This 133-nucleotide sequence from Streptococcus pneumoniae belongs to the Rfam family "PyrR binding site". Rfam links the family to the GO terms pyrimidine nucleobase biosynthetic process and pyrimidine nucleobase transport. A reference for the family is Bonner et al. (2001), "Molecular recognition of pyr mRNA by the Bacillus subtilis attenuation regulatory protein PyrR", Nucleic Acids Res. NCBI's taxonomy places the organism under Bacteria, Lactobacillales, Streptococcaceae, Streptococcus, Streptococcus pneumoniae. The family's consensus secondary structure is taken from published work.
RNA sequence: UAUUCCUUUAAACCUGUCCCGUGAGGCAGGCAAGGAGCGCGAUAAAGUAGAAGGGUGAAGUCUAUACUGUGUGCAGUAGGGCUCGCUUGGCUAUAAAUUUCAAGUCUCCUUGUUUAAGGAGACUUUUCUUUUU
Number, nucleotide and partner (000 for none) at each position: 001u000002a000003u037004u036005c035006c034007u033008u032009u000010a000011a000012a000013c030014c029015u028016g027017u026018c025019c000020c000021g000022u000023g000024a000025g018026g017027c016028a015029g014030g013031c000032a008033a007034g006035g005036a004037g003038c000039g000040c000041g000042a000043u000044a000045a072046a000047g070048u069049a068050g067051a000052a065053g000054g063055g062056u000057g000058a000059a000060g000061u000062c055063u054064a000065u052066a000067c050068u049069g048070u047071g000072u045073g000074c000075a000076g000077u000078a000079g000080g000081g000082c000083u000084c000085g000086c000087u000088u000089g000090g000091c000092u000093a000094u000095a000096a000097a000098u000099u000100u000101c000102a125103a124104g123105u122106c121107u120108c119109c118110u117111u116112g000113u000114u000115u000116a111117a110118g109119g108120a107121g106122a105123c104124u103125u102126u000127u000128c000129u000130u000131u000132u000133u000